[Rfam]
RNA sequence: CCCUGACAAACACACAACGUGUUUGACACUAGCCACGACAGGAGAAUCAUAUG
Numbered sequence: 001c002c003c004u005g006a007c008a009a010a011c012a013c014a015c016a017a018c019g020u021g022u023u024u025g026a027c028a029c030u031a032g033c034c035a036c037g038a039c040a041g042g043a044g045a046a047u048c049a050u051a052u053g
Stems, first nucleotide, its partner, number of pairs: 002042004007025005
Rfam assigns this 53-nucleotide RNA to the family "Mu-gpT-DE RNA". The family's consensus secondary structure is taken from published work. It is annotated as a small RNA.